[Rfam]
The record is a 110-nucleotide RNA from Rhodoferax sp. OV413, which matches "Glycine riboswitch aptamer" in Rfam. Its family is annotated with glycine biosynthetic process in the Gene Ontology. A search with the family's covariance model found it, with a score of 41 bits.

RNA sequence: GUCACACACUCUGAAGAGCAACCGGGUUUCGUCACCCGGUUCACCGCAGGAGCAAGCGGCUGGCUAUGCGCCGGCCGUGAAUCUCUCAGGUCCAAAACAGAGGGGCGAUA
Dot-bracket structure: ......(.(((((......(((((((........))))))).((((...(((...(((((((((.....)))))))))....))).).)))......))))).)......